[Rfam]
RNA sequence: CUUUCGGCUCGCUGUAAGUAUUACAGCAAGCUUGCCCAUCGGAAAGCUGCUUGGUGUUAUAUCUUACAGUGAGCUGAGGG
Numbered sequence: 001c002u003u004u005c006g007g008c009u010c011g012c013u014g015u016a017a018g019u020a021u022u023a024c025a026g027c028a029a030g031c032u033u034g035c036c037c038a039u040c041g042g043a044a045a046g047c048u049g050c051u052u053g054g055u056g057u058u059a060u061a062u063c064u065u066a067c068a069g070u071g072a073g074c075u076g077a078g079g080g
Stems, first nucleotide, its partner, number of pairs: 006075008015066003024056002027053005
The record is an 80-nucleotide RNA from Culex quinquefasciatus, which matches "mir-971 microRNA precursor family" in Rfam.
Taxonomically the source falls in Culex pipiens complex (Eukaryota, Protostomia, Panorpida, Culicomorpha).
The family has 6 seed sequences and 118 matches in Rfam 15.1.